[Rfam]
RNA sequence: AUAUGCCUGGCUCCCUGUAUGCCACUCAUCUAGAGCAACAACUCGAGUAGUCCUAUUGUUGCCUACGAUGGAUGGCGUGCACGGUGCCAAGCAUGU
Number, nucleotide and partner (000 for none) at each position: 001a096002u095003a094004u093005g092006c091007c000008u089009g088010g087011c086012u000013c084014c083015c000016u081017g080018u079019a078020u077021g076022c075023c074024a073025c000026u000027c070028a069029u068030c000031u000032a000033g000034a000035g000036c000037a000038a000039c000040a000041a000042c000043u000044c000045g000046a000047g000048u000049a000050g000051u000052c000053c000054u000055a000056u000057u000058g000059u000060u000061g000062c000063c000064u000065a000066c000067g000068a029069u028070g027071g000072a000073u024074g023075g022076c021077g020078u019079g018080c017081a016082c000083g014084g013085u000086g011087c010088c009089a008090a000091g006092c005093a004094u003095g002096u001
RNA: mir-160 microRNA precursor family
Organism: Panicum miliaceum